[Rfam]
RNA sequence: AUUUGUCGUCUAAUCUAGUUGAAAUAUUGUCCAACUAGACAGAACAGCAGUUAAAUCA
Numbered sequence: 001a002u003u004u005g006u007c008g009u010c011u012a013a014u015c016u017a018g019u020u021g022a023a024a025u026a027u028u029g030u031c032c033a034a035c036u037a038g039a040c041a042g043a044a045c046a047g048c049a050g051u052u053a054a055a056u057c058a
Base pairs, nucleotide, nucleotide: 008045009044014039015038016037017036018035019034020033021032

This 58-nucleotide sequence from Streptococcus iniae belongs to the Rfam family "Lacto-rpoB RNA". By type it is a cis-regulatory element. The source organism's lineage runs through Bacteria, Bacillati, Bacilli, Streptococcaceae and Streptococcus. A search with the family's covariance model found it, with a score of 70 bits.